[Rfam]
Nucleotides: 084
Base pairs, nucleotide, nucleotide: 012037013036017032018031020029021028022027040078041077042076043075047074048073049070050069051068056064057063058062
Number, partner (000 for none) and nucleotide at each position: 001000a002000a003000u004000c005000g006000a007000u008000a009000a010000a011000g012037g013036c014000a015000a016000a017032c018031c019000u020029u021028c022027u023000g024000a025000a026000a027022g028021g029020a030000u031018g032017g033000g034000g035000c036013g037012c038000a039000a040078a041077g042076c043075u044000a045000u046000a047074g048073g049070g050069g051068c052000u053000a054000a055000g056064g057063a058062c059000a060000a061000c062058g063057u064056c065000u066000a067000u068051g069050c070049c071000a072000g073048c074047c075043a076042g077041u078040u079000g080000c081000c082000g083000g084000u
The family of this 84-nucleotide sequence from Paraliobacillus quinghaiensis is "c-di-GMP-I riboswitch aptamer". NCBI's taxonomy places the organism under Bacteria, Bacilli, Caryophanales, Bacillaceae, Paraliobacillus.